Rfam assigns this 444-nucleotide RNA sequence from Rufibacter radiotolerans to the family "Bacterial RNase P class A".
[Rfam]
RNA sequence: UCAGUAAGCCGGCUUAUCGCUGCGCCUUCGGGCGGGGAGGAAAGUCCGGGCAACGCAGAGCAUCCUGCUUCCUAACGGGAAGGCACUUGACGGGAGACGGUCAGGUGACAGCCAGUGCCACAGAAAAUAACCGCCCUCUUUUAAUUAGGAAUGGGGAAUUACGAGUCAUUCUUAAUUCUAAAUUCUUAAUUAAAAAGGGGUAAGGGUGAAAAGGUGCGGUAAGAGCGCACCAGCGGCUGGGCGACCAGACCGGCUGGGUAAACCUCAGGAGUUGAAAGACCAAAUAGGCUGACAGCGUCUUGCCUAAGGGUAAGGCUAAGGGCUGCUCGUCCGAUGUCAGUGGGUAGGUUGAUGGAGCCCCUCCGUGAGGGCGGGUCUAGAUAAAUGAUAAGCCAUUUGCCGCAAGGCAAAGGACAAAACCCGGCUUACAGGCUUACUGAUUUU
Number, nucleotide and partner (000 for none) at each position: 001u440002c439003a438004g437005u436006a435007a434008g433009c432010c431011g429012g393013c392014u391015u390016a389017u388018c387019g000020c037021u036022g000023c034024g033025c032026c031027u000028u000029c000030g000031g026032g025033c024034g023035g000036g021037g020038a000039g000040g000041a000042a427043a426044g425045u000046c424047c423048g422049g421050g420051c274052a273053a272054c271055g000056c000057a000058g328059a327060g326061c325062a000063u270064c269065c268066u267067g266068c082069u081070u080071c079072c078073u000074a000075a000076c000077g000078g072079g071080a070081a069082g068083g109084c107085a106086c105087u104088u103089g102090a101091c100092g000093g000094g000095a000096g000097a000098c000099g000100g091101u090102c089103a088104g087105g086106u085107g084108a000109c083110a265111g264112c000113c000114a000115g263116u262117g259118c258119c257120a000121c000122a000123g000124a000125a000126a000127a000128u000129a000130a000131c205132c204133g201134c200135c199136c198137u197138c000139u195140u194141u193142u192143a191144a190145u189146u188147a187148g186149g185150a184151a183152u182153g000154g000155g000156g000157a000158a000159u000160u000161a000162c000163g000164a000165g000166u000167c000168a000169u000170u000171c000172u000173u000174a000175a000176u000177u000178c000179u000180a000181a000182a152183u151184u150185c149186u148187u147188a146189a145190u144191u143192a142193a141194a140195a139196a000197g137198g136199g135200g134201u133202a000203a000204g132205g131206g000207u000208g000209a000210a000211a000212a000213g231214g230215u229216g228217c227218g226219g000220u000221a000222a000223g000224a000225g000226c218227g217228c216229a215230c214231c213232a000233g254234c252235g251236g250237c248238u247239g246240g245241g000242c000243g000244a000245c240246c239247a238248g237249a000250c236251c235252g234253g000254c233255u000256g000257g119258g118259u117260a000261a000262a116263c115264c111265u110266c067267a066268g065269g064270a063271g054272u053273u052274g051275a000276a000277a000278g350279a349280c348281c347282a000283a000284a000285u000286a000287g000288g341289c340290u339291g338292a337293c336294a000295g000296c000297g000298u000299c000300u000301u000302g000303c000304c000305u000306a000307a000308g000309g000310g000311u000312a000313a000314g000315g000316c000317u000318a000319a000320g332321g331322g330323c329324u000325g061326c060327u059328c058329g323330u322331c321332c320333g000334a000335u000336g293337u292338c291339a290340g289341u288342g000343g000344g000345u000346a000347g281348g280349u279350u278351g000352a000353u000354g000355g000356a000357g376358c375359c374360c373361c000362u371363c370364c369365g000366u000367g000368a000369g364370g363371g362372c000373g360374g359375g358376u357377c000378u000379a000380g000381a000382u000383a000384a000385a000386u000387g018388a017389u016390a015391a014392g013393c012394c000395a000396u000397u000398u000399g000400c000401c000402g000403c000404a000405a000406g000407g000408c000409a000410a000411a000412g000413g000414a000415c000416a000417a000418a000419a000420c050421c049422c048423g047424g046425c044426u043427u042428a000429c011430a000431g010432g009433c008434u007435u006436a005437c004438u003439g002440a001441u000442u000443u000444u000
Source information: The match comes from Rfam's covariance-model search (267 bits).